[Rfam]
RNA sequence: ACACGAGAAGGGAGGUGGUUCCCGAAAUGUACGGAAACCGGACGCGUGAGGUGACUGCGGGCUAAGCGCCCGUCGUCGCACGCACCCAGUGCGGUGCCCGGCGGGAUCGCCAGGCGCCAAUCCCAAGCAGUCACCCGACCCGCGGGCUCGCCGGUACGUCCGGCCGGCUUCUCUCACUGCAGGAGAGAAACCAGAGCCCGCGGGUCGUCUGCG
Dot-bracket structure: ..............(((((..................................))))).(((.....(((...((................................))...)))))).................(((((((((((((.((((((.......))))))..........................)))))))))))))......
Background:
Rfam assigns this 213-nucleotide RNA sequence from Streptomyces xanthophaeus to the family "Actinobacteria sRNA Ms_IGR-5". A reference for the family is Li et al. (2013), "Identification of small RNAs in Mycobacterium smegmatis using heterologous Hfq", RNA. Pairs were carried over by alignment from the consensus structure. NCBI's taxonomy places the organism under Bacteria, Bacillati, Actinomycetota, Streptomycetaceae, Streptomyces.